[Rfam]
RNA sequence: AUUUUCGCAUAACUCCGAGCUUGUUCACCUACGUUUUGUUGAUUGCAAAAUACGGUGGCAAUGCCAGCAAUGCAUUUUGUAUUGCUCAGGGAUACGUUGGAAACGGCUUAUCCUCUCCAUUUUAGAAAGGUGUCUAAUGCAAAGCAUU
Numbered sequence: 001a002u003u004u005u006c007g008c009a010u011a012a013c014u015c016c017g018a019g020c021u022u023g024u025u026c027a028c029c030u031a032c033g034u035u036u037u038g039u040u041g042a043u044u045g046c047a048a049a050a051u052a053c054g055g056u057g058g059c060a061a062u063g064c065c066a067g068c069a070a071u072g073c074a075u076u077u078u079g080u081a082u083u084g085c086u087c088a089g090g091g092a093u094a095c096g097u098u099g100g101a102a103a104c105g106g107c108u109u110a111u112c113c114u115c116u117c118c119a120u121u122u123u124a125g126a127a128a129g130g131u132g133u134c135u136a137a138u139g140c141a142a143a144g145c146a147u148u
Base pairs, nucleotide, nucleotide: 003142004141006139012133013132015130016129019064020063022061025058026057027056028055029054033051034050035049036048037047038046039045066086067085068084069083070082071081072080073079089114090113091112092111093110094109096107097106098105099104115125116124
A member of the RNA family "Molybdenum/Tungsten riboswitch aptamer (Moco RNA motif)" from Avibacterium volantium, 148 nucleotides long. The match comes from Rfam's covariance-model search (90 bits). The family has 160 seed sequences and 1,248 matches in Rfam 15.1.